[Rfam]
Rfam assigns this 191-nucleotide RNA from Paenibacillus psychroresistens to the family "c-di-AMP riboswitch aptamer (ydaO/yuaA leader)".
RNA sequence: CCAAUAAAAACGCUGAAUUUUCUAGCACAAGGAAAACGGGGAAUCCAAAAAAAUCAUGUUAUUAAGGUGUUUGUACCUUACAUUACAUGAUUUGGGGUGAAUCCUAGGAGUUACUUUUGUAAUUCUCUAGGUAGGGCGACUCUCACGCCCGAAUCCGUCAGCUAACCUCGUAAGCGCAUAUAAGAGAGGCA
Numbered sequence: 001c002c003a004a005u006a007a008a009a010a011c012g013c014u015g016a017a018u019u020u021u022c023u024a025g026c027a028c029a030a031g032g033a034a035a036a037c038g039g040g041g042a043a044u045c046c047a048a049a050a051a052a053a054u055c056a057u058g059u060u061a062u063u064a065a066g067g068u069g070u071u072u073g074u075a076c077c078u079u080a081c082a083u084u085a086c087a088u089g090a091u092u093u094g095g096g097g098u099g100a101a102u103c104c105u106a107g108g109a110g111u112u113a114c115u116u117u118u119g120u121a122a123u124u125c126u127c128u129a130g131g132u133a134g135g136g137c138g139a140c141u142c143u144c145a146c147g148c149c150c151g152a153a154u155c156c157g158u159c160a161g162c163u164a165a166c167c168u169c170g171u172a173a174g175c176g177c178a179u180a181u182a183a184g185a186g187a188g189g190c191a
Stems, first nucleotide, its partner, number of pairs: 011176004018035006036171006046094004095156003103131006134150004
Dot-bracket structure: ..........((((...((((((......))))))((((((....((((.........................................))))(((.....((((((.................))))))..((((.........))))...))).........)))))).))))...............
Its family is annotated with cyclic-di-AMP binding and regulation of gene expression in the Gene Ontology.
It scores 94 bits against the family's covariance model.